[Rfam]
RNA sequence: CGCCGCGCGGUGAGCACAGAGCGUACUAUUCUUUCGCCUUUUACUAAAGAAUACCGUGUACUCGCCGCUCAAAGCGACAUAUGCCUAUUUUUGGAGGGCCUUUCUCUUUCCUGAGAUGG
Number, nucleotide and partner (000 for none) at each position: 001c000002g000003c000004c076005g075006c074007g000008c067009g066010g065011u064012g063013a062014g061015c000016a059017c058018a057019g000020a000021g000022c000023g000024u000025a000026c000027u053028a052029u051030u050031c049032u048033u047034u046035c000036g000037c000038c000039u000040u000041u000042u000043a000044c000045u000046a034047a033048a032049g031050a030051a029052u028053a027054c000055c000056g000057u018058g017059u016060a000061c014062u013063c012064g011065c010066c009067g008068c000069u000070c000071a000072a000073a000074g006075c005076g004077a000078c000079a000080u000081a000082u000083g000084c000085c000086u000087a000088u000089u000090u000091u000092u000093g000094g000095a000096g000097g000098g000099c119100c118101u000102u116103u000104c000105u000106c000107u000108u000109u000110c000111c000112u000113g000114a000115g000116a102117u000118g100119g099

Shown here is a 119-nucleotide RNA from Nelumbo nucifera, a member of the family "U5 spliceosomal RNA". By type it is a spliceosomal small nuclear RNA. A search with the family's covariance model found it, with a score of 81 bits. On this family, see Zwieb, Nucleic Acids Res 1997: "The uRNA database". Gene Ontology terms of the family: spliceosomal tri-snRNP complex assembly and U5 snRNP. Taxonomically the source falls in Nelumbo (Eukaryota, Streptophytina, Spermatophyta, Mesangiospermae).